[Rfam]
RNA sequence: CGCCAUUCCUGGGGGAGUCCUUGGCUGGACUGAGAUUCCGUGGUCGAUUCUAUCGCUUCGGUAACCCUUUGAACCUGAUCCGGAUCAUGCCGGCGAAGGGAAGGAAGCGCCUUUCUAC
Numbered sequence: 001c002g003c004c005a006u007u008c009c010u011g012g013g014g015g016a017g018u019c020c021u022u023g024g025c026u027g028g029a030c031u032g033a034g035a036u037u038c039c040g041u042g043g044u045c046g047a048u049u050c051u052a053u054c055g056c057u058u059c060g061g062u063a064a065c066c067c068u069u070u071g072a073a074c075c076u077g078a079u080c081c082g083g084a085u086c087a088u089g090c091c092g093g094c095g096a097a098g099g100g101a102a103g104g105a106a107g108c109g110c111c112u113u114u115c116u117a118c
Base pairs, nucleotide, nucleotide: 006106007105008104009103010102011068012067013066014065016062017030018029019028020027038061039060040059074099075098076097080093081092082091083090
This 118-nucleotide sequence from Pistricoccus aurantiacus belongs to the Rfam family "TPP riboswitch aptamer (THI element)".
The match comes from Rfam's covariance-model search (70 bits).